[Rfam]
RNA sequence: UCCCUCCAGAUCCCUUUCCCAUCAGAUCUGAAUACCGAUCUUGUGGUCGAAAAAGGAGGAAAAGCAGCAUUCAGACUGGCCUUGGCCUCUUUGCUGGCACAGCCCUGCUCUGAGCGGG
Numbered sequence: 001u002c003c004c005u006c007c008a009g010a011u012c013c014c015u016u017u018c019c020c021a022u023c024a025g026a027u028c029u030g031a032a033u034a035c036c037g038a039u040c041u042u043g044u045g046g047u048c049g050a051a052a053a054a055g056g057a058g059g060a061a062a063a064g065c066a067g068c069a070u071u072c073a074g075a076c077u078g079g080c081c082u083u084g085g086c087c088u089c090u091u092u093g094c095u096g097g098c099a100c101a102g103c104c105c106u107g108c109u110c111u112g113a114g115c116g117g118g
Stems, first nucleotide, its partner, number of pairs: 003059005019046003023043001025040004076107001078105002081102002085098003
This 118-nucleotide sequence belongs to the Rfam family "Small nucleolar RNA SNORA61". Rfam's curators write: ACA61 is a member of the H/ACA class of snoRNA that guide the sites of modification of uridines to pseudouridines. Rfam classes the family as an H/ACA-box small nucleolar RNA. Rfam's curators put it in the seed alignment.